[Rfam]
RNA sequence: AGGCAGCCCCUUUGUCCGAUAACCAUGGCAAUGGAGGUGUUGCGUUGCUCGGAGAUAAAUCUUUUGCUCUUCAGAUUGGCUGAGGGGGGAGUUUGCCUUCCCUCAUUGAAGCUGGUCUAGUAGUCUUAAGAACAUC
Numbered sequence: 001a002g003g004c005a006g007c008c009c010c011u012u013u014g015u016c017c018g019a020u021a022a023c024c025a026u027g028g029c030a031a032u033g034g035a036g037g038u039g040u041u042g043c044g045u046u047g048c049u050c051g052g053a054g055a056u057a058a059a060u061c062u063u064u065u066g067c068u069c070u071u072c073a074g075a076u077u078g079g080c081u082g083a084g085g086g087g088g089g090a091g092u093u094u095g096c097c098u099u100c101c102c103u104c105a106u107u108g109a110a111g112c113u114g115g116u117c118u119a120g121u122a123g124u125c126u127u128a129a130g131a132a133c134a135u136c
Base pairs, nucleotide, nucleotide: 002041003040004039005038007037008036009034010033012031013030014029015028016027061130062129063128066125068123073118074117075116076115077114079112080111081110084104085103086102087101088100089099090098

Overview
The family of this 136-nucleotide sequence from Eragrostis curvula is "Small nucleolar RNA snoR77". A search with the family's covariance model found it, with a score of 109 bits. A reference for the family is Marker et al. (2002), "Experimental RNomics: identification of 140 candidates for small non-messenger RNAs in the plant Arabidopsis thaliana", Curr Biol. The family's RNA type in Rfam is H/ACA-box small nucleolar RNA.